[Rfam]
RNA sequence: CCUGUGGAGUGCUAAACCAACCGUAGUAGCGGGAUAUUGGCGAGGCGGGGUACGAAGAAGCAGGAA
Numbered sequence: 001c002c003u004g005u006g007g008a009g010u011g012c013u014a015a016a017c018c019a020a021c022c023g024u025a026g027u028a029g030c031g032g033g034a035u036a037u038u039g040g041c042g043a044g045g046c047g048g049g050g051u052a053c054g055a056a057g058a059a060g061c062a063g064g065a066a
Stems, first nucleotide, its partner, number of pairs: 001064005009053005021048003029041002